[Rfam]
RNA sequence: AGAGGCCCUCUGCAGCCAGGGUGGAACACUUGCCUUGUCGCCACGGCGACAAAGCAAGCUUUCCGCCAGGCUGCUCACACUGCCCAC
Numbered sequence: 001a002g003a004g005g006c007c008c009u010c011u012g013c014a015g016c017c018a019g020g021g022u023g024g025a026a027c028a029c030u031u032g033c034c035u036u037g038u039c040g041c042c043a044c045g046g047c048g049a050c051a052a053a054g055c056a057a058g059c060u061u062u063c064c065g066c067c068a069g070g071c072u073g074c075u076c077a078c079a080c081u082g083c084c085c086a087c
Stems, first nucleotide, its partner, number of pairs: 004084003012074006020067007029058005037050005

Rfam assigns this 87-nucleotide sequence from Cnephaeus nilssonii to the family "mir-9195 microRNA precursor family".
Lineage of the source: Eukaryota > Chordata > Vertebrata > Teleostomi > Cnephaeus.
A search with the family's covariance model found it, with a score of 98 bits.
Gene Ontology terms of the family: miRNA-mediated post-transcriptional gene silencing and RISC complex.
The base pairs follow the family's consensus structure, which was predicted with RNAalifold.